[Rfam]
RNA sequence: GCACGGGGACGACCCCGCGCCAUGCGGUAUUACCGGGACGACCCG
Numbered sequence: 001g002c003a004c005g006g007g008g009a010c011g012a013c014c015c016c017g018c019g020c021c022a023u024g025c026g027g028u029a030u031u032a033c034c035g036g037g038a039c040g041a042c043c044c045g
Base pairs, nucleotide, nucleotide: 001020002019004017005016006015007014008013034045035044036043037042
This 45-nucleotide sequence from Aureimonas pseudogalii belongs to the Rfam family "Guanidine-II riboswitch aptamer (mini-ykkC)". A search with the family's covariance model found it, with a score of 46 bits. Pairs were carried over by alignment from the consensus structure, which is taken from published work. About the family: Simpler in structure and has fewer highly conserved nucleotide positions than the ykkC-yxkD leader.